[Rfam]
RNA sequence: UUUGAUGAAAUAGCGCCAGAACCUGAGCCAUCAGGUUGACGAGGACGAAGUUAUCGAAAAUUCGGCGGAUGCUUCGCGGUAUACACUACCGACAACGACAGGAGAAAACCAAUGAGUAAUUGUUGGGCCAAUCCUGGCAGGUGUUUUAA
Dot-bracket structure: ...................(((((((....)))))))........(((((...((((....))))......)))))(((((.....))))).....(.((((......(((((((....)))))))......)))).)...........
About this RNA:
A member of the RNA family "glmS glucosamine-6-phosphate activated ribozyme aptamer" from Proteiniclasticum sediminis, 149 nucleotides long. Gene Ontology terms of the family: catalytic activity and regulation of gene expression. A reference for the family is Winkler et al. (2004), "Control of gene expression by a natural metabolite-responsive ribozyme", Nature. From the family's description: This entry contains a glucosamine-6-phosphate activated ribozyme that is found in the mRNA for GlmS. GlmS is an enzyme that uses fructose-6-phosphate and glutamine to generate glucosamine-6-phosphate. Lineage of the source: Bacteria > Bacillota > Eubacteriales > Clostridiaceae > Proteiniclasticum.